[Rfam]
The record is a 135-nucleotide sequence from Klebsiella sp. RIT-PI-d, which matches "Enterobacteria sRNA STnc130" in Rfam. By type it is a small RNA.

RNA sequence: UAUAUCGAUAAUUCAAAAUGGCAGCAGUUAAUGCUACUUUCGAACGAAAGUCAUAUUAACCCUUAUGAGGUAGAGGUUAUUGUCCGGUAUCAAAGCAGGCAUAAAAAAAGCGCCCGCAGGCGCUUUAUAAAGAAA
Dot-bracket structure: ...........................................................(........).....................................((((((((....)))))))).........
Numbered sequence: 001u002a003u004a005u006c007g008a009u010a011a012u013u014c015a016a017a018a019u020g021g022c023a024g025c026a027g028u029u030a031a032u033g034c035u036a037c038u039u040u041c042g043a044a045c046g047a048a049a050g051u052c053a054u055a056u057u058a059a060c061c062c063u064u065a066u067g068a069g070g071u072a073g074a075g076g077u078u079a080u081u082g083u084c085c086g087g088u089a090u091c092a093a094a095g096c097a098g099g100c101a102u103a104a105a106a107a108a109a110g111c112g113c114c115c116g117c118a119g120g121c122g123c124u125u126u127a128u129a130a131a132g133a134a135a
Stems, first nucleotide, its partner, number of pairs: 060069001107126008